[Rfam]
Nucleotides: 070
Base pairs, nucleotide, nucleotide: 001070002069003067004066
Number, partner (000 for none) and nucleotide at each position: 001070a002069c003067u004066c005000a006000g007000u008000g009000a010000u011000g012000a013000a014000c015000a016000u017000a018000a019000a020000a021000a022000a023000g024000a025000c026000a027000a028000g029000c030000a031000u032000a033000u034000g035000g036000c037000u038000g039000a040000a041000c042000u043000u044000g045000g046000u047000g048000a049000u050000g051000u052000c053000a054000u055000c056000u057000u058000c059000c060000u061000a062000c063000u064000g065000a066004g067003a068000a069002g070001u
The record is a 70-nucleotide RNA from Ailuropoda melanoleuca, which matches "Small nucleolar RNA SNORD27" in Rfam. The base pairs follow the family's consensus structure. Rfam links the family to the GO terms nucleolus and RNA processing. The family has 8 seed sequences and 218 matches in Rfam 15.1. The family's RNA type in Rfam is C/D-box small nucleolar RNA. It scores 71 bits against the family's covariance model.